[Rfam]
Shown here is a 112-nucleotide RNA, a member of the family "SAM-I/IV (S-adenosyl methionine) riboswitch aptamer". Its family is annotated with regulation of gene expression and S-adenosylmethionine metabolic process in the Gene Ontology. For this family Rfam cites "Structural basis for diversity in the SAM clan of riboswitches" (Trausch et al., PNAS, 2014). The family has 417 seed sequences and 567 matches in Rfam 15.1. Rfam's curators put it in the seed alignment.
RNA sequence: UCAUCAGGAGAGGUUUCUUACUUGAAACCCACCAACCGAACUUAAAAGUUACGGUGGUUAGUUCCAUUAAACGGGAGAUGUGCCUUGAAAAAGGAAAAAUAGAACCGCCUGA
Numbered sequence: 001u002c003a004u005c006a007g008g009a010g011a012g013g014u015u016u017c018u019u020a021c022u023u024g025a026a027a028c029c030c031a032c033c034a035a036c037c038g039a040a041c042u043u044a045a046a047a048g049u050u051a052c053g054g055u056g057g058u059u060a061g062u063u064c065c066a067u068u069a070a071a072c073g074g075g076a077g078a079u080g081u082g083c084c085u086u087g088a089a090a091a092a093g094g095a096a097a098a099a100u101a102g103a104a105c106c107g108c109c110u111g112a
Base pairs, nucleotide, nucleotide: 002080003079004078005077010030012029013028014027015026016025031058032057033056036054037053038052039050040049041048043107083094084093085092086091